[Rfam]
RNA: Small nucleolar RNA SNORD27
RNA sequence: ACUCCGUGAUGAACAUUCAACGACAAGCAUAUGGCUGAACUUAAAAGUGAUGUCAUCCGAGUCCUGAGAAGU
Numbered sequence: 001a002c003u004c005c006g007u008g009a010u011g012a013a014c015a016u017u018c019a020a021c022g023a024c025a026a027g028c029a030u031a032u033g034g035c036u037g038a039a040c041u042u043a044a045a046a047g048u049g050a051u052g053u054c055a056u057c058c059g060a061g062u063c064c065u066g067a068g069a070a071g072u
Stems, first nucleotide, its partner, number of pairs: 001072002003069002